[Rfam]
Annotation
A member of the RNA family "MIR2617 microRNA precursor family" from Medicago truncatula, 86 nucleotides long. Its family is annotated with miRNA-mediated post-transcriptional gene silencing and RISC complex in the Gene Ontology. Pairs were carried over by alignment from the consensus structure, which was predicted with RNAalifold.

RNA sequence: UGGUGAUGUAGCAUGCCCGUAUGGUGUUUAACUCUGAUGAUUAAUUGUUAUUUUAUUACUUUUGGGUAACGGGGUGUUACACUCGC
Numbered sequence: 001u002g003g004u005g006a007u008g009u010a011g012c013a014u015g016c017c018c019g020u021a022u023g024g025u026g027u028u029u030a031a032c033u034c035u036g037a038u039g040a041u042u043a044a045u046u047g048u049u050a051u052u053u054u055a056u057u058a059c060u061u062u063u064g065g066g067u068a069a070c071g072g073g074g075u076g077u078u079a080c081a082c083u084c085g086c
Base pairs, nucleotide, nucleotide: 002086005083007081008080009079010078011077012076013075014074016073017072018071019070020069